[Rfam]
RNA sequence: GUCGCGCAAGCGCCGAAGGCAGGAGCGGGGGACCCAAGGUAAGCGCCGGACAGGCCCGAUGAGGGCUGCCCGGCUAGGGGUGGAGCCGUGCGCUCGUCGCACGGCCGGGCACCACAUCGGCCCGAACCCGACAGCUCACCUCGCAGGCGUCGGUGAGGAGAACU
Numbered sequence: 001g002u003c004g005c006g007c008a009a010g011c012g013c014c015g016a017a018g019g020c021a022g023g024a025g026c027g028g029g030g031g032a033c034c035c036a037a038g039g040u041a042a043g044c045g046c047c048g049g050a051c052a053g054g055c056c057c058g059a060u061g062a063g064g065g066c067u068g069c070c071c072g073g074c075u076a077g078g079g080g081u082g083g084a085g086c087c088g089u090g091c092g093c094u095c096g097u098c099g100c101a102c103g104g105c106c107g108g109g110c111a112c113c114a115c116a117u118c119g120g121c122c123c124g125a126a127c128c129c130g131a132c133a134g135c136u137c138a139c140c141u142c143g144c145a146g147g148c149g150u151c152g153g154u155g156a157g158g159a160g161a162a163c164u
Stems, first nucleotide, its partner, number of pairs: 011149004025144006035077001078129003086104004107123004